[Rfam]
RNA sequence: CUUCACCGAGCCGAGCAGCAGCGGGUGCGCGCGCUCCGCGCCGUACGUGGCGAGCAGCGCCUGCGCCUC
Numbered sequence: 001c002u003u004c005a006c007c008g009a010g011c012c013g014a015g016c017a018g019c020a021g022c023g024g025g026u027g028c029g030c031g032c033g034c035u036c037c038g039c040g041c042c043g044u045a046c047g048u049g050g051c052g053a054g055c056a057g058c059g060c061c062u063g064c065g066c067c068u069c
Stems, first nucleotide, its partner, number of pairs: 014026001016024001028065003032059002037054001039052001041050003

Shown here is a 69-nucleotide RNA sequence, a member of the family "ASpks TB sRNA". The family's RNA type in Rfam is antisense RNA. On this family, see Arnvig and Young, Mol Microbiol 2009: "Identification of small RNAs in Mycobacterium tuberculosis".